[Rfam]
RNA sequence: AAAAAUUUGUCACCGAGUUCCCUUCUGGGGAAGCGGGGGAACCAGUUUUGGGGUGAAAUGCAAUCAGCAUGGGGCUAUCACUUCGGCCCUAACCCGUCAGCUAACCUCGUAGGUGUGGAAAGUGAGGCAUC
Numbered sequence: 001a002a003a004a005a006u007u008u009g010u011c012a013c014c015g016a017g018u019u020c021c022c023u024u025c026u027g028g029g030g031a032a033g034c035g036g037g038g039g040a041a042c043c044a045g046u047u048u049u050g051g052g053g054u055g056a057a058a059u060g061c062a063a064u065c066a067g068c069a070u071g072g073g074g075c076u077a078u079c080a081c082u083u084c085g086g087c088c089c090u091a092a093c094c095c096g097u098c099a100g101c102u103a104a105c106c107u108c109g110u111a112g113g114u115g116u117g118g119a120a121a122g123u124g125a126g127g128c129a130u131c
Stems, first nucleotide, its partner, number of pairs: 011115004018032003033110006043050002051095003059069003072089004

Source information: Rfam assigns this 131-nucleotide sequence from Desulfoscipio gibsoniae to the family "c-di-AMP riboswitch aptamer (ydaO/yuaA leader)". NCBI's taxonomy places the organism under Bacteria, Bacillota, Clostridia, Eubacteriales, Desulfoscipio gibsoniae.